Shown here is a 127-nucleotide RNA sequence from Molossus molossus, a member of the family "Small Cajal body specific RNA 24". About the family: scaRNAs are a specific class of small nuclear RNAs which localise to the Cajal bodies and guide the modification of RNA polymerase II transcribed spliceosomal RNAs U1, U2, U4, U5 and U12. A reference for the family is Darzacq et al. (2002), "Cajal body-specific small nuclear RNAs: a novel class of 2'-O-methylation and pseudouridylation guide RNAs", EMBO J. Rfam 15.1 lists 689 matches to the family in 502 species. Pairs were carried over by alignment from the consensus structure, which was predicted with RNAfold. Clan: SCARNA3 clan. The source organism's lineage runs through Eukaryota, Chordata, Gnathostomata, Molossidae and Molossus.
[Rfam]
RNA sequence: UGGACAUCUACUUUAUUCAGUUUCUUCUUAAAGUGAAGAAAACUCUUGUAAAUGUACUAGAGAAAUAUAGCUUUCUGUUCACCCUUUGCAAAAGUAAAAAGGGUGGAUCGUUCUACUACUGACAUGU
Dot-bracket structure: .(.((((.(((.......(((((((((.......))))).))))...))).)))).)..........(((.............((((..........))))..............))...)......